[Rfam]
RNA: Small nucleolar RNA U54
RNA sequence: AGCUCAGUGAUUAGAGCCAAUUACAUUGGCAAUAUACUCUAUACUGAUCAUAUUUUGAUGAAAAGUUUAUAUGAGAGCU
Numbered sequence: 001a002g003c004u005c006a007g008u009g010a011u012u013a014g015a016g017c018c019a020a021u022u023a024c025a026u027u028g029g030c031a032a033u034a035u036a037c038u039c040u041a042u043a044c045u046g047a048u049c050a051u052a053u054u055u056u057g058a059u060g061a062a063a064a065g066u067u068u069a070u071a072u073g074a075g076a077g078c079u
Base pairs, nucleotide, nucleotide: 001079002078003077004076005075